[Rfam]
RNA sequence: GUCAAUCACCCCACGGAUAAAUCCGGGGCUUGAGAACAUCAAGCCCAGGUUGACCAGGCACAGCCACCGACGAGAAAUCGUCGACGGGGCUACGUUGGAAGCGAAUACAUAGGCACCUUGGAAUGCCCUCCCAGUUCCAAGCUCUGCGGUGGCCGGUUAAAAGACGUUCCGGGGUUUCAGCGUCGGUGCCGGUCACAUCAAACCUCUUCGCAACAUUGCCGAGGGAGACAUGAC
Numbered sequence: 001g002u003c004a005a006u007c008a009c010c011c012c013a014c015g016g017a018u019a020a021a022u023c024c025g026g027g028g029c030u031u032g033a034g035a036a037c038a039u040c041a042a043g044c045c046c047a048g049g050u051u052g053a054c055c056a057g058g059c060a061c062a063g064c065c066a067c068c069g070a071c072g073a074g075a076a077a078u079c080g081u082c083g084a085c086g087g088g089g090c091u092a093c094g095u096u097g098g099a100a101g102c103g104a105a106u107a108c109a110u111a112g113g114c115a116c117c118u119u120g121g122a123a124u125g126c127c128c129u130c131c132c133a134g135u136u137c138c139a140a141g142c143u144c145u146g147c148g149g150u151g152g153c154c155g156g157u158u159a160a161a162a163g164a165c166g167u168u169c170c171g172g173g174g175u176u177u178c179a180g181c182g183u184c185g186g187u188g189c190c191g192g193u194c195a196c197a198u199c200a201a202a203c204c205u206c207u208u209c210g211c212a213a214c215a216u217u218g219c220c221g222a223g224g225g226a227g228a229c230a231u232g233a234c
Stems, first nucleotide, its partner, number of pairs: 001054007010028002012025001016023002029043004057220004062091004094214004098209004103204001113147002117141008128227005149196009161187001163184006
A member of the RNA family "HNH endonuclease-associated RNA and ORF (HEARO) RNA" from Geoalkalibacter subterraneus, 234 nucleotides long. On this family, see Weinberg et al., Nature 2009: "Exceptional structured noncoding RNAs revealed by bacterial metagenome analysis". The family has 139 seed sequences and 952 matches in Rfam 15.1.